[Rfam]
RNA sequence: GAAUAACACUAUUUUGUUAUUUUCGACCAAUAACACAAUGACACGUGAAAAAGUUAUUCUAUGUAUCACUGCGUUAUUGGUCGAAAAUAGCAAAAAGUGUUAUUC
Numbered sequence: 001g002a003a004u005a006a007c008a009c010u011a012u013u014u015u016g017u018u019a020u021u022u023u024c025g026a027c028c029a030a031u032a033a034c035a036c037a038a039u040g041a042c043a044c045g046u047g048a049a050a051a052a053g054u055u056a057u058u059c060u061a062u063g064u065a066u067c068a069c070u071g072c073g074u075u076a077u078u079g080g081u082c083g084a085a086a087a088u089a090g091c092a093a094a095a096a097g098u099g100u101u102a103u104u105c
Base pairs, nucleotide, nucleotide: 002104003103004102005101012095013094014093015092016091017090018089019088020087022085023084024083025082026081027080028079029078030077031076032075033074034073036071037070039068040067041066043064044063045062046061047060049058050057
The record is a 105-nucleotide RNA from Prunus persica, which matches "MIR6274 microRNA precursor family" in Rfam. The match comes from Rfam's covariance-model search (87 bits). Its family is annotated with miRNA-mediated post-transcriptional gene silencing and RISC complex in the Gene Ontology. The organism belongs to Prunus, within Eukaryota.